[Rfam]
RNA sequence: UAAAACUUUCGGGGCAGGGUGAAAUUCCCGAUCGGCGGUAUAGUCCGCGAGCUUUUAUAGCAUGAACUGGUUUAAUUCCAGUACCGACAGUAAAGUCUGGAUAAAAGAAAGUAAAG
Dot-bracket structure: ....((((((......(((.......))).[[((((((....[[))))....(......).....(((((.......)))))]])).(((....]]))).......))))))....
RNA: FMN riboswitch aptamer (RFN element)
Organism: Clostridium ljungdahlii